[Rfam]
RNA: Group I catalytic intron
RNA sequence: AAUCACGGGUUAAAUUAAAGCCCCUUAAAGUAGGAAUAUUUUAAUGCAAAUAGGGUGAAUUGCAAGGACAAGUUUAUCUCAUAAACUCAAUUUGCAGCGAAGCGUAUAUCAGUGUUAGCUCCAGUAAGGCCCUGCUUUAUGGAAAGAUAUACGAACGUCCAACGACUAAUCGGUGAGCAGCACUAGCAAUAAACCGGACACGAGCGCCCUACAACCAGUUAUAUACUAAAGAAUAAUUGGUUGAAGACAUAGUCUAAGCCCUAUCGUGAGAUAGGG
Numbered sequence: 001a002a003u004c005a006c007g008g009g010u011u012a013a014a015u016u017a018a019a020g021c022c023c024c025u026u027a028a029a030g031u032a033g034g035a036a037u038a039u040u041u042u043a044a045u046g047c048a049a050a051u052a053g054g055g056u057g058a059a060u061u062g063c064a065a066g067g068a069c070a071a072g073u074u075u076a077u078c079u080c081a082u083a084a085a086c087u088c089a090a091u092u093u094g095c096a097g098c099g100a101a102g103c104g105u106a107u108a109u110c111a112g113u114g115u116u117a118g119c120u121c122c123a124g125u126a127a128g129g130c131c132c133u134g135c136u137u138u139a140u141g142g143a144a145a146g147a148u149a150u151a152c153g154a155a156c157g158u159c160c161a162a163c164g165a166c167u168a169a170u171c172g173g174u175g176a177g178c179a180g181c182a183c184u185a186g187c188a189a190u191a192a193a194c195c196g197g198a199c200a201c202g203a204g205c206g207c208c209c210u211a212c213a214a215c216c217a218g219u220u221a222u223a224u225a226c227u228a229a230a231g232a233a234u235a236a237u238u239g240g241u242u243g244a245a246g247a248c249a250u251a252g253u254c255u256a257a258g259c260c261c262u263a264u265c266g267u268g269a270g271a272u273a274g275g276g
Base pairs, nucleotide, nucleotide: 005025007023008022009021010020011019029040030039031038051211052210053209054208056206057205061096062095063094064093065092066091071087072086073085074084075083097158098157162255164254165253166252167251168250214241215240216239217238218237219236220235221234222233261274262273263272264271265270